[Rfam]
RNA sequence: CAUUUUAUAAAAGCGCCUGAACUACACCUAGAAUGAUAGGUGAUAGUUGACGAGGAGGAGGUUUAUCGAAGUUUCGGCGGAUGCCUCCCGGUUGAAAAGCACAACCGAAAAGCUCUUUCUUAAAUCAUUAAGGCAACUUAAUGGACAAAGGGAAGGGCAUGCUAAUAA
Numbered sequence: 001c002a003u004u005u006u007a008u009a010a011a012a013g014c015g016c017c018u019g020a021a022c023u024a025c026a027c028c029u030a031g032a033a034u035g036a037u038a039g040g041u042g043a044u045a046g047u048u049g050a051c052g053a054g055g056a057g058g059a060g061g062u063u064u065a066u067c068g069a070a071g072u073u074u075c076g077g078c079g080g081a082u083g084c085c086u087c088c089c090g091g092u093u094g095a096a097a098a099g100c101a102c103a104a105c106c107g108a109a110a111a112g113c114u115c116u117u118u119c120u121u122a123a124a125u126c127a128u129u130a131a132g133g134c135a136a137c138u139u140a141a142u143g144g145a146c147a148a149a150g151g152g153a154a155g156g157g158c159a160u161g162c163u164a165a166u167a168a
Stems, first nucleotide, its partner, number of pairs: 020048005025042003057088005066077004089107006112158007126143007
The family of this 168-nucleotide sequence from Niallia endozanthoxylica is "glmS glucosamine-6-phosphate activated ribozyme aptamer". The literature on the family includes a 2004 paper in Nature by Winkler et al., "Control of gene expression by a natural metabolite-responsive ribozyme". Lineage of the source: Bacteria > Bacilli > Caryophanales > Bacillaceae > Niallia. Rfam's curators write: This entry contains a glucosamine-6-phosphate activated ribozyme that is found in the mRNA for GlmS. GlmS is an enzyme that uses fructose-6-phosphate and glutamine to generate glucosamine-6-phosphate. The ribozyme catalyses self cleavage of the glmS mRNA that is thought to regulate GlmS activity.